[Rfam]
RNA sequence: GGAUCCAUAGGGGGGAUAGCAAUCCAGCCUUAGGAAAAGAAAUCUGCCAUGGGCGGCUUGGAGAUUGGCAACUGUCCUAAUGACUUA
Numbered sequence: 001g002g003a004u005c006c007a008u009a010g011g012g013g014g015g016a017u018a019g020c021a022a023u024c025c026a027g028c029c030u031u032a033g034g035a036a037a038a039g040a041a042a043u044c045u046g047c048c049a050u051g052g053g054c055g056g057c058u059u060g061g062a063g064a065u066u067g068g069c070a071a072c073u074g075u076c077c078u079a080a081u082g083a084c085u086u087a
Base pairs, nucleotide, nucleotide: 002086003085006082007081008080010078011077012076013075014073015072017070020067021066022065023064024063028061029060037059038058039057043053044052045051046050
A member of the RNA family "mir-9014 microRNA precursor family" from Equus caballus, 87 nucleotides long. Its family is annotated with miRNA-mediated post-transcriptional gene silencing and RISC complex in the Gene Ontology. NCBI's taxonomy places the organism under Eukaryota, Metazoa, Amniota, Perissodactyla, Equus. Rfam 15.1 lists 581 matches to the family in 2 species.